RNA sequence: UGAAAUAAGGGGCUGCCCCUUUGUCAUUUUACUGACAAGCGGGACAGCCCCUAUUUCAAUGGGAGAGGAGAAACCGGACGAAGAGCUUAUGGGGAACGUAAGUCUUCUUCGUGG
Numbered sequence: 001u002g003a004a005a006u007a008a009g010g011g012g013c014u015g016c017c018c019c020u021u022u023g024u025c026a027u028u029u030u031a032c033u034g035a036c037a038a039g040c041g042g043g044a045c046a047g048c049c050c051c052u053a054u055u056u057c058a059a060u061g062g063g064a065g066a067g068g069a070g071a072a073a074c075c076g077g078a079c080g081a082a083g084a085g086c087u088u089a090u091g092g093g094g095a096a097c098g099u100a101a102g103u104c105u106u107c108u109u110c111g112u113g114g
Stems, first nucleotide, its partner, number of pairs: 011049005017043003050063005075111004080107004085103005